RNA sequence: CAGUCUUGAUCGGGAGAGGGCAGCCUGGCGCUGCCGCCGAAGGGGCAUCACCCAAAAACUCUCAGGCAAAAGGACCGGUCAGGGAGC
Numbered sequence: 001c002a003g004u005c006u007u008g009a010u011c012g013g014g015a016g017a018g019g020g021c022a023g024c025c026u027g028g029c030g031c032u033g034c035c036g037c038c039g040a041a042g043g044g045g046c047a048u049c050a051c052c053c054a055a056a057a058a059c060u061c062u063c064a065g066g067c068a069a070a071a072g073g074a075c076c077g078g079u080c081a082g083g084g085a086g087c
Stems, first nucleotide, its partner, number of pairs: 006082008020034004036067003039063002043061003